[Rfam]
RNA sequence: UGCAUAUUUCGCGAUGGCGGAGCUCGACCGCCCACUGAAGCGAUGAUUGCCUUCAUGGAGGAACACCGAGGUGUGUUUGGGGUCGAGCCGAUUUGCAGACUGCUGCCGAUUGCCCCG
Numbered sequence: 001u002g003c004a005u006a007u008u009u010c011g012c013g014a015u016g017g018c019g020g021a022g023c024u025c026g027a028c029c030g031c032c033c034a035c036u037g038a039a040g041c042g043a044u045g046a047u048u049g050c051c052u053u054c055a056u057g058g059a060g061g062a063a064c065a066c067c068g069a070g071g072u073g074u075g076u077u078u079g080g081g082g083u084c085g086a087g088c089c090g091a092u093u094u095g096c097a098g099a100c101u102g103c104u105g106c107c108g109a110u111u112g113c114c115c116c117g
Base pairs, nucleotide, nucleotide: 016032017031018030019029020028078117079116080115081114082113089112090111092109093108095106096105097104098103